A member of the RNA family "Giant, ornate, lake- and Lactobacillales-derived (GOLLD) RNA", 413 nucleotides long.
A reference for the family is Weinberg et al. (2009), "Exceptional structured noncoding RNAs revealed by bacterial metagenome analysis", Nature.
The family's consensus secondary structure is taken from published work.

RNA sequence: UCGGGUAGUUAAGUAUUCUGUCGUUCAAAAGGCGGCGGAGCUUGUGAUAGACCGCUACCUGAAACCACUGCAAAACCAAACUUAUAUUUGCAUUUAGGAUUGCAAAAUCAUAAAAAUCAAAAUAAGAAAAAGUGUCUAUCAGUUUUGACCGAAAGGUGUCUACAUAGUAAUGAGUUGUUCAUUGCCACAAACACUCUCAAGGUGAAUGUGAUUCUUUCGAAAGGUUUCUAACACCGCAAGUGUGAAUCUGCUCGGCAGGGUAGAAGAAAAUAAGUAAGAAGAGAGUAGGUUAAAACUCAAAGAGUGGUUCACUUAAAUAACCGACAUUGGUUGUUACAUCUCAAAAGGAUGUGGAAACAAAGGGAAUAGAUAAUCCUUUUAAAGACAACUACAAUAUGGUGUAUUCUCAGCCU
Numbered sequence: 001u002c003g004g005g006u007a008g009u010u011a012a013g014u015a016u017u018c019u020g021u022c023g024u025u026c027a028a029a030a031g032g033c034g035g036c037g038g039a040g041c042u043u044g045u046g047a048u049a050g051a052c053c054g055c056u057a058c059c060u061g062a063a064a065c066c067a068c069u070g071c072a073a074a075a076c077c078a079a080a081c082u083u084a085u086a087u088u089u090g091c092a093u094u095u096a097g098g099a100u101u102g103c104a105a106a107a108u109c110a111u112a113a114a115a116a117u118c119a120a121a122a123u124a125a126g127a128a129a130a131a132g133u134g135u136c137u138a139u140c141a142g143u144u145u146u147g148a149c150c151g152a153a154a155g156g157u158g159u160c161u162a163c164a165u166a167g168u169a170a171u172g173a174g175u176u177g178u179u180c181a182u183u184g185c186c187a188c189a190a191a192c193a194c195u196c197u198c199a200a201g202g203u204g205a206a207u208g209u210g211a212u213u214c215u216u217u218c219g220a221a222a223g224g225u226u227u228c229u230a231a232c233a234c235c236g237c238a239a240g241u242g243u244g245a246a247u248c249u250g251c252u253c254g255g256c257a258g259g260g261u262a263g264a265a266g267a268a269a270a271u272a273a274g275u276a277a278g279a280a281g282a283g284a285g286u287a288g289g290u291u292a293a294a295a296c297u298c299a300a301a302g303a304g305u306g307g308u309u310c311a312c313u314u315a316a317a318u319a320a321c322c323g324a325c326a327u328u329g330g331u332u333g334u335u336a337c338a339u340c341u342c343a344a345a346a347g348g349a350u351g352u353g354g355a356a357a358c359a360a361a362g363g364g365a366a367u368a369g370a371u372a373a374u375c376c377u378u379u380u381a382a383a384g385a386c387a388a389c390u391a392c393a394a395u396a397u398g399g400u401g402u403a404u405u406c407u408c409a410g411c412c413u
Stems, first nucleotide, its partner, number of pairs: 001062009010044005017039009046140007126198002141297010156327005167185006186210004192204004213282005226268004231243004247264003251260002306322004329390006335353007354406003359379006398412003

Rfam's curators put it in the seed alignment.